[Rfam]
Background:
Shown here is an 89-nucleotide sequence from Salix dunnii, a member of the family "Small nucleolar RNA Z103".
RNA sequence: AUGUAAAGGAUGGUUAUUUGCCCAUAUGUUUGACUUAGAGUAUGCUGUGCCACUGCUCUUAUAGAAUCCAAGCCAACCCUCUGUUCCAU
Numbered sequence: 001a002u003g004u005a006a007a008g009g010a011u012g013g014u015u016a017u018u019u020g021c022c023c024a025u026a027u028g029u030u031u032g033a034c035u036u037a038g039a040g041u042a043u044g045c046u047g048u049g050c051c052a053c054u055g056c057u058c059u060u061a062u063a064g065a066a067u068c069c070a071a072g073c074c075a076a077c078c079c080u081c082u083g084u085u086c087c088a089u
Stems, first nucleotide, its partner, number of pairs: 001089003005085001
A search with the family's covariance model found it, with a score of 44 bits. Rfam links the family to the GO terms RNA processing and nucleolus.